[Rfam]
A member of the RNA family "FMN riboswitch aptamer (RFN element)" from Clostridium oryzae, 120 nucleotides long.
A search with the family's covariance model found it, with a score of 92 bits.
RNA sequence: AUAAAUCUUCAGGGCAGGGUGAGAUUCCCGACCGGUGGUAUAGCCCACGAACCGUAAGGUGUGAUUUCGGUGAAAUUCCGAGGCCGACAGUAUAUAAGUCUGGAUAAAAGGAAGAUUAUU
Numbered sequence: 001a002u003a004a005a006u007c008u009u010c011a012g013g014g015c016a017g018g019g020u021g022a023g024a025u026u027c028c029c030g031a032c033c034g035g036u037g038g039u040a041u042a043g044c045c046c047a048c049g050a051a052c053c054g055u056a057a058g059g060u061g062u063g064a065u066u067u068c069g070g071u072g073a074a075a076u077u078c079c080g081a082g083g084c085c086g087a088c089a090g091u092a093u094a095u096a097a098g099u100c101u102g103g104a105u106a107a108a109a110g111g112a113a114g115a116u117u118a119u120u
Stems, first nucleotide, its partner, number of pairs: 004117007017029003031099002033086002035048004043084002051062002066082005088102003
The base pairs follow the family's consensus structure, which is taken from published work.